[Rfam]
Nucleotides: 134
Stems, first nucleotide, its partner, number of pairs: 003061004017047003021043005075123003089113008
Number, partner (000 for none) and nucleotide at each position: 001000u002000u003061c004060c005059a006058c007000a008000g009000u010000u011000a012000c013000u014000g015000g016000u017047c018046u019045g020000g021043a022042a023041c024040u025039g026000u027000u028000c029000u030000g031000a032000c033000a034000u035000g036000u037000a038000g039025c040024a041023g042022u043021u044000g045019c046018a047017g048000u049000a050000u051000u052000c053000c054000a055000u056000c057000u058006g059005u060004g061003g062000g063000a064000a065000a066000u067000a068000a069000a070000c071000g072000g073000u074000u075123a076122c077121a078000c079000u080000g081000u082000a083000u084000c085000a086000u087000g088000c089113u090112c091111c092110u093109u094108u095107u096106c097000a098000g099000g100000u101000c102000a103000g104000c105000u106096g107095a108094a109093a110092a111091g112090g113089a114000c115000u116000u117000u118000c119000u120000a121077u122076g123075u124000a125000a126000c127000a128000g129000a130000c131000a132000a133000g134000a
About this RNA
Small nucleolar RNA SNORA41: a 134-nucleotide RNA sequence from Platysternon megacephalum. Pairs were carried over by alignment from the consensus structure, which was predicted with PFOLD. Rfam's curators write: ACA41 is a member of the H/ACA class of snoRNA that guide the sites of modification of uridines to pseudouridines. It is annotated as an H/ACA-box small nucleolar RNA. NCBI's taxonomy places the organism under Eukaryota, Opisthokonta, Chordata, Sauropsida, Platysternon. It scores 110 bits against the family's covariance model. A reference for the family is Huttenhofer et al. (2001), "RNomics: an experimental approach that identifies 201 candidates for novel, small, non-messenger RNAs in mouse", EMBO J. The family has 31 seed sequences and 676 matches in Rfam 15.1.